[Rfam]
RNA sequence: GUGCCGUGAAGAACAUAUUUUUUGUGCUGGAGGCAUUUAUGUUGAUGAUGGUAUCACAAACCCUCUAAGAAGUUCUGAGCAC
Numbered sequence: 001g002u003g004c005c006g007u008g009a010a011g012a013a014c015a016u017a018u019u020u021u022u023u024g025u026g027c028u029g030g031a032g033g034c035a036u037u038u039a040u041g042u043u044g045a046u047g048a049u050g051g052u053a054u055c056a057c058a059a060a061c062c063c064u065c066u067a068a069g070a071a072g073u074u075c076u077g078a079g080c081a082c
Stems, first nucleotide, its partner, number of pairs: 001082004